[Rfam]
RNA sequence: CUCGUCCGUCCCGUGGACGGACUGACCAUCAGCCCCGGGUCCCGGCUACCCUGGCGGCGUGCGUCCUGCCCGGGGCGUUCCGCGCGCACCGCUCGCGGACACUCCCGCCGAGGGCGCAAAGCCGACAGCCGUCGCACCAAGGGAGCCCCUUUUCAUG
Number, nucleotide and partner (000 for none) at each position: 001c000002u000003c000004g000005u000006c000007c000008g000009u000010c000011c000012c000013g000014u000015g000016g000017a000018c000019g000020g000021a000022c000023u000024g000025a000026c000027c000028a000029u000030c000031a000032g000033c000034c000035c000036c000037g000038g000039g000040u000041c000042c000043c000044g000045g000046c000047u000048a000049c000050c000051c000052u000053g000054g000055c000056g000057g000058c000059g000060u118061g117062c116063g115064u000065c113066c112067u111068g000069c000070c000071c000072g000073g000074g000075g000076c000077g000078u000079u000080c000081c000082g000083c000084g000085c000086g000087c000088a000089c000090c000091g000092c000093u000094c000095g000096c000097g000098g000099a000100c000101a000102c000103u000104c000105c000106c000107g000108c000109c000110g000111a067112g066113g065114g000115c063116g062117c061118a060119a000120a000121g135122c134123c000124g133125a132126c131127a000128g000129c000130c000131g126132u125133c124134g122135c121136a000137c000138c000139a000140a000141g000142g000143g000144a000145g000146c000147c000148c000149c000150u000151u000152u000153u000154c000155a000156u000157g000

Streptomyces-metH RNA: a 157-nucleotide RNA from Streptomyces fumanus. The base pairs follow the family's consensus structure, which is taken from published work. A search with the family's covariance model found it, with a score of 80 bits. NCBI's taxonomy places the organism under Bacteria, Actinomycetota, Actinomycetes, Kitasatosporales, Streptomyces. Rfam classes the family as a small RNA.